[Rfam]
RNA: ACEA small nucleolar RNA U3
Organism: Nematocida parisii
RNA sequence: GAGGCGAUACUUUACAGAAUCAUUUGUAUAGUAAGUAUGCUAUCCGAGUUACUACAAAAUAGUGCUCGCUCGAUACUGGAAUGAGGAAGAACAACUUCAAUUCUUUAAUUAGAAGGUUAGAGAUAUUUAGGAGUGUAAGUAUAUUUACACUUCUGUCUCUUUUGAUGAAUUAUUGAAUAUCCUCCAGAAUAUCUGUUGAGGAAGGAUUAGAAGUAUUCUGACCAGUG
Numbered sequence: 001g002a003g004g005c006g007a008u009a010c011u012u013u014a015c016a017g018a019a020u021c022a023u024u025u026g027u028a029u030a031g032u033a034a035g036u037a038u039g040c041u042a043u044c045c046g047a048g049u050u051a052c053u054a055c056a057a058a059a060u061a062g063u064g065c066u067c068g069c070u071c072g073a074u075a076c077u078g079g080a081a082u083g084a085g086g087a088a089g090a091a092c093a094a095c096u097u098c099a100a101u102u103c104u105u106u107a108a109u110u111a112g113a114a115g116g117u118u119a120g121a122g123a124u125a126u127u128u129a130g131g132a133g134u135g136u137a138a139g140u141a142u143a144u145u146u147a148c149a150c151u152u153c154u155g156u157c158u159c160u161u162u163u164g165a166u167g168a169a170u171u172a173u174u175g176a177a178u179a180u181c182c183u184c185c186a187g188a189a190u191a192u193c194u195g196u197u198g199a200g201g202a203a204g205g206a207u208u209a210g211a212a213g214u215a216u217u218c219u220g221a222c223c224a225g226u227g
Stems, first nucleotide, its partner, number of pairs: 002041002005039001006036001008033004016027001018025002048066001049064001051063003075226005094214005099208006109172001111170001119160003123154001182200003186196001